[Rfam]
RNA sequence: GAGAGGUGGGUGAGAAUCCCACCGGCCGAAAACCCAAGGUUUCCAGAGGAAGGUUCGUCCUCUCUGGGUUAGUCGGGGCCUAAGCCGAGGCCGAAAGGCGUAGGCGAUGGACAACGGGUUGAUAUUCCCGUACCACCAACCACCAUUUGAGUGAUGGGGUGACACAGUAGGAUAGGCCAUCCUUCAGCUGGUUUUGAAGGUCCAAGCGUCAAGGGAGUCAUGGUAGGCAAAUCCGCCGUGGCAAUUCUGAGGCGUGAUGGGGAGCGAAAUUUAGUAGCGAAGUGGUUGAUUUCACACUGUCAGGAAAAGCCUCUAGCGAGGUGGAAGGUGCCCGUACCGCAAACCGACACAGGUGGGUGAGGAGAGAAUCCUAAGGCUAG
Numbered sequence: 001g002a003g004a005g006g007u008g009g010g011u012g013a014g015a016a017u018c019c020c021a022c023c024g025g026c027c028g029a030a031a032a033c034c035c036a037a038g039g040u041u042u043c044c045a046g047a048g049g050a051a052g053g054u055u056c057g058u059c060c061u062c063u064c065u066g067g068g069u070u071a072g073u074c075g076g077g078g079c080c081u082a083a084g085c086c087g088a089g090g091c092c093g094a095a096a097g098g099c100g101u102a103g104g105c106g107a108u109g110g111a112c113a114a115c116g117g118g119u120u121g122a123u124a125u126u127c128c129c130g131u132a133c134c135a136c137c138a139a140c141c142a143c144c145a146u147u148u149g150a151g152u153g154a155u156g157g158g159g160u161g162a163c164a165c166a167g168u169a170g171g172a173u174a175g176g177c178c179a180u181c182c183u184u185c186a187g188c189u190g191g192u193u194u195u196g197a198a199g200g201u202c203c204a205a206g207c208g209u210c211a212a213g214g215g216a217g218u219c220a221u222g223g224u225a226g227g228c229a230a231a232u233c234c235g236c237c238g239u240g241g242c243a244a245u246u247c248u249g250a251g252g253c254g255u256g257a258u259g260g261g262g263a264g265c266g267a268a269a270u271u272u273a274g275u276a277g278c279g280a281a282g283u284g285g286u287u288g289a290u291u292u293c294a295c296a297c298u299g300u301c302a303g304g305a306a307a308a309g310c311c312u313c314u315a316g317c318g319a320g321g322u323g324g325a326a327g328g329u330g331c332c333c334g335u336a337c338c339g340c341a342a343a344c345c346g347a348c349a350c351a352g353g354u355g356g357g358u359g360a361g362g363a364g365a366g367a368a369u370c371c372u373a374a375g376g377c378u379a380g
Base pairs, nucleotide, nucleotide: 005023006022007021008020009019010018024378025377026376027375032358033357034356035355038338039337043067044066045065046064047063048062052060053059074334075333076332077331079110080109084105085104086103088101090099091098092097114131115130116129117128118127134330135329136328137327140324141323142322143321144320151317152316156313157312158311159310160309164300165299166298167297170293171292172291175287176286177285178284179283181200182199183198184197185196202260203259206255207254208253209252213248214247215246218241219240220239221238222237223236224235226234227233264278265277267275344353345352360372361371362370363369
This 380-nucleotide part of an RNA from Peptoclostridium acidaminophilum belongs to the Rfam family "Bacterial large subunit ribosomal RNA". The literature on the family includes a 2002 paper in BMC Bioinformatics by Cannone et al., "The comparative RNA web (CRW) site: an online database of comparative sequence and structure information for ribosomal, intron, and other RNAs". The base pairs follow the family's consensus structure, which is taken from published work. Its family is annotated with structural constituent of ribosome and ribosome in the Gene Ontology.